[Rfam]
RNA sequence: CGGGGAAAUGCAGACUCCCCAUUAGACGCUUGGCGUCCAAGUUCUGC
Numbered sequence: 001c002g003g004g005g006a007a008a009u010g011c012a013g014a015c016u017c018c019c020c021a022u023u024a025g026a027c028g029c030u031u032g033g034c035g036u037c038c039a040a041g042u043u044c045u046g047c
Stems, first nucleotide, its partner, number of pairs: 002020005010047005025037005
Rfam assigns this 47-nucleotide RNA sequence to the family "chrB-b RNA".
Pairs were carried over by alignment from the consensus structure, which is taken from published work.
The family's RNA type in Rfam is cis-regulatory element.